[Rfam]
Rfam assigns this 74-nucleotide RNA from Cnephaeus nilssonii to the family "mir-9279 microRNA precursor family". A search with the family's covariance model found it, with a score of 86 bits.
RNA sequence: CUGGGUGAGGCCACGCGCCCCUGGGUCUGGGAGAGGCCACGCACCCCUGGGUCCGGGUGAGGCCUCGCGCCCCU
Numbered sequence: 001c002u003g004g005g006u007g008a009g010g011c012c013a014c015g016c017g018c019c020c021c022u023g024g025g026u027c028u029g030g031g032a033g034a035g036g037c038c039a040c041g042c043a044c045c046c047c048u049g050g051g052u053c054c055g056g057g058u059g060a061g062g063c064c065u066c067g068c069g070c071c072c073c074u
Base pairs, nucleotide, nucleotide: 003072004071005070006069007068008065009064010063011062012061016059017058018057019056020055023054024053025052026051027050028049029048030047031046033045036042037041